Rfam assigns this 54-nucleotide sequence from Salmo salar to the family "UnaL2 LINE 3' element".
The source organism's lineage runs through Eukaryota, Eumetazoa, Chordata, Euteleostomi and Salmo.
[Rfam]
RNA sequence: AUGCACCAAAUUUGUAAGUCGCUCUGGAUAAGAGCGACUGCUAAAUGACGUAAA
Numbered sequence: 001a002u003g004c005a006c007c008a009a010a011u012u013u014g015u016a017a018g019u020c021g022c023u024c025u026g027g028a029u030a031a032g033a034g035c036g037a038c039u040g041c042u043a044a045a046u047g048a049c050g051u052a053a054a
Stems, first nucleotide, its partner, number of pairs: 013043001014041003020036006